This 90-nucleotide RNA sequence from Prauserella cavernicola belongs to the Rfam family "Glycine riboswitch aptamer".
[Rfam]
RNA sequence: CGAGCCAGGGCGGGAGAGUCCCCGUACGACGGGGCACCGAAGGAGCAAGCUCCCCACCAAUCUCUCAGGUACCGCUACCGCCCAUGGUUA
Numbered sequence: 001c002g003a004g005c006c007a008g009g010g011c012g013g014g015a016g017a018g019u020c021c022c023c024g025u026a027c028g029a030c031g032g033g034g035c036a037c038c039g040a041a042g043g044a045g046c047a048a049g050c051u052c053c054c055c056a057c058c059a060a061u062c063u064c065u066c067a068g069g070u071a072c073c074g075c076u077a078c079c080g081c082c083c084a085u086g087g088u089u090a
Stems, first nucleotide, its partner, number of pairs: 008083006020034004036070003039066002043064003049057001